RNA sequence: UUUCGGGGCCAGGUCGCCGCUCCGAUGUUCUUUGCAGCAUGGGAGAGGAAAGUCCGGACACCGCAGGGCAGGACGCCGCACGAGCUGUUGUCGCAAGGCAGGCAAGUGCGGGCGGCGCGCGUCAAGGCGCGACCGACGGAAAGUGUCACAGAAAACAAACCGCCUCCGCAGGCAACUGCGCGGGGCAAGGGUGAAAAGGUGGGGCAAGAGCCCACCGCGUCGUCAGCAAUGACGGCGGCACGAAAAACCCCGUCCGGUGCAAGGCAAAAUAGGUGACCGGGUGGCCCGCCCUCAGGUCACGGGUAUGCCGCAUCGGGUCUCCGGACCCGGGGCGGGCGCAAGCCCGUCAGAGAAAUGACGACCGCCCGCCGUCGCGAGACGGCGGCGCACAAAAUCCGGCUUACGGCCCCGAAACCAG
Numbered sequence: 001u002u003u004c005g006g007g008g009c010c011a012g013g014u015c016g017c018c019g020c021u022c023c024g025a026u027g028u029u030c031u032u033u034g035c036a037g038c039a040u041g042g043g044a045g046a047g048g049a050a051a052g053u054c055c056g057g058a059c060a061c062c063g064c065a066g067g068g069c070a071g072g073a074c075g076c077c078g079c080a081c082g083a084g085c086u087g088u089u090g091u092c093g094c095a096a097g098g099c100a101g102g103c104a105a106g107u108g109c110g111g112g113c114g115g116c117g118c119g120c121g122u123c124a125a126g127g128c129g130c131g132a133c134c135g136a137c138g139g140a141a142a143g144u145g146u147c148a149c150a151g152a153a154a155a156c157a158a159a160c161c162g163c164c165u166c167c168g169c170a171g172g173c174a175a176c177u178g179c180g181c182g183g184g185g186c187a188a189g190g191g192u193g194a195a196a197a198g199g200u201g202g203g204g205c206a207a208g209a210g211c212c213c214a215c216c217g218c219g220u221c222g223u224c225a226g227c228a229a230u231g232a233c234g235g236c237g238g239c240a241c242g243a244a245a246a247a248c249c250c251c252g253u254c255c256g257g258u259g260c261a262a263g264g265c266a267a268a269a270u271a272g273g274u275g276a277c278c279g280g281g282u283g284g285c286c287c288g289c290c291c292u293c294a295g296g297u298c299a300c301g302g303g304u305a306u307g308c309c310g311c312a313u314c315g316g317g318u319c320u321c322c323g324g325a326c327c328c329g330g331g332g333c334g335g336g337c338g339c340a341a342g343c344c345c346g347u348c349a350g351a352g353a354a355a356u357g358a359c360g361a362c363c364g365c366c367c368g369c370c371g372u373c374g375c376g377a378g379a380c381g382g383c384g385g386c387g388c389a390c391a392a393a394a395u396c397c398g399g400c401u402u403a404c405g406g407c408c409c410c411g412a413a414a415c416c417a418g
Stems, first nucleotide, its partner, number of pairs: 001414010012363005018357001020045004025040004050402003054399005059259004067287002071255005076111005112137001113135003138250002143248002146243002160190002162186003166183002168179004198216006217239001218237008263309004273300006280292002283289001
Bacterial RNase P class A: a 418-nucleotide RNA from Opitutaceae bacterium TAV5. By type it is a ribozyme.